[Rfam]
RNA sequence: UCAUAACAAUCGCUGAAUUCUAAUCAAGAAGCGGGGAAACCAAUGCUUCCGGUUGCACCUAUUGAGAAAUGGGGCAUAGACCGGAUGCGAGGGGUGAAUCAGGCGAUGCCGCGCCGCGGCUUGCUUGUAGGGAGGCUCUCUAUUCCGAAUCCGUCAGCUAACUCCGUAAGCGAACAAGAGGAGUGCU
Number, nucleotide and partner (000 for none) at each position: 001u000002c000003a000004u000005a000006a000007c000008a000009a000010u000011c172012g171013c170014u169015g000016a000017a000018u030019u029020c028021u000022a000023a000024u000025c000026a000027a000028g020029a019030a018031g167032c166033g165034g164035g163036g162037a000038a000039a000040c000041c091042a000043a000044u000045g000046c000047u000048u000049c000050c000051g000052g000053u000054u000055g000056c000057a000058c000059c000060u000061a000062u000063u000064g000065a000066g000067a000068a000069a000070u000071g000072g000073g000074g000075c000076a000077u000078a000079g000080a000081c000082c000083g000084g000085a000086u000087g000088c000089g000090a000091g041092g152093g151094g150095u000096g000097a000098a000099u000100c127101a126102g125103g124104c123105g122106a121107u000108g000109c000110c000111g000112c000113g000114c000115c000116g000117c000118g000119g000120c000121u106122u105123g104124c103125u102126u101127g100128u000129a000130g146131g145132g144133a143134g000135g000136c000137u000138c000139u000140c000141u000142a000143u133144u132145c131146c130147g000148a000149a000150u094151c093152c092153g000154u000155c000156a000157g000158c000159u000160a000161a000162c036163u035164c034165c033166g032167u031168a000169a014170g013171c012172g011173a000174a000175c000176a000177a000178g000179a000180g000181g000182a000183g000184u000185g000186c000187u000
RNA: c-di-AMP riboswitch aptamer (ydaO/yuaA leader)
Organism: Paenibacillus sp. NEAU-GSW1